[Rfam]
RNA sequence: AAUGCUACUUCCACGCCAGUGGCCCGCAUAAGUGACGGGAAAAUGCACACCCACGUUUGAGAAAGAAUGUGGGCGGCUUUU
Numbered sequence: 001a002a003u004g005c006u007a008c009u010u011c012c013a014c015g016c017c018a019g020u021g022g023c024c025c026g027c028a029u030a031a032g033u034g035a036c037g038g039g040a041a042a043a044u045g046c047a048c049a050c051c052c053a054c055g056u057u058u059g060a061g062a063a064a065g066a067a068u069g070u071g072g073g074c075g076g077c078u079u080u081u
Base pairs, nucleotide, nucleotide: 011022012021013020014019023039024038025037026036040081041080042079043078045077046076050073053070054069055068056067057066

dinG RNA: an 81-nucleotide sequence. By type it is a small RNA. It is one of the family's seed sequences.